[Rfam]
RNA sequence: GCAAUUUCCACUAGGAGGAUGUCAUCCCAGUGCUUGACACUGGGAUCCAGUUCCUAUUACCUGGUGUAAAGUUAAGUUUUCUGGAUUCCAGUGUCAAGCACUGGAAAGACAUCAUUUACCAUGUACAAU
Numbered sequence: 001g002c003a004a005u006u007u008c009c010a011c012u013a014g015g016a017g018g019a020u021g022u023c024a025u026c027c028c029a030g031u032g033c034u035u036g037a038c039a040c041u042g043g044g045a046u047c048c049a050g051u052u053c054c055u056a057u058u059a060c061c062u063g064g065u066g067u068a069a070a071g072u073u074a075a076g077u078u079u080u081c082u083g084g085a086u087u088c089c090a091g092u093g094u095c096a097a098g099c100a101c102u103g104g105a106a107a108g109a110c111a112u113c114a115u116u117u118a119c120c121a122u123g124u125a126c127a128a129u
Stems, first nucleotide, its partner, number of pairs: 012123002015120001020111004025106001027104024
Dot-bracket structure: ...........((.(....((((.(.((((((((((((((((((((((((..............................)))))))))))))))))))))))).).))))........).))......
Source information
Wolbachia sRNA 46: a 129-nucleotide RNA sequence from Trichonephila inaurata. Rfam 15.1 lists 237 matches to the family in 34 species. NCBI's taxonomy places the organism under Eukaryota, Opisthokonta, Araneomorphae, Nephilidae, Trichonephila inaurata. Pairs were carried over by alignment from the consensus structure. On this family, see Mayoral et al., Proc Natl Acad Sci U S A 2014: "Wolbachia small noncoding RNAs and their role in cross-kingdom communications". Rfam classes the family as a small RNA.